RNA sequence: CGUCAUUGAGGGCAAAAAGGCUCUUGUCACACCUCUCUAUAGCCCAUAGAGAGGUAUCUGAGAUGUUGGGUACGCCGUCCAACCAUUGACC
Numbered sequence: 001c002g003u004c005a006u007u008g009a010g011g012g013c014a015a016a017a018a019g020g021c022u023c024u025u026g027u028c029a030c031a032c033c034u035c036u037c038u039a040u041a042g043c044c045c046a047u048a049g050a051g052a053g054g055u056a057u058c059u060g061a062g063a064u065g066u067u068g069g070g071u072a073c074g075c076c077g078u079c080c081a082a083c084c085a086u087u088g089a090c091c
Base pairs, nucleotide, nucleotide: 002090003089004088005087007085008084011028012027013026014025015024019076020075021074030060031055032054033053034052035051036050037049038048039047040046065083066082067081068080069079

A member of the RNA family "skipping-rope RNA", 91 nucleotides long.
The sequence is in the family's curated seed alignment.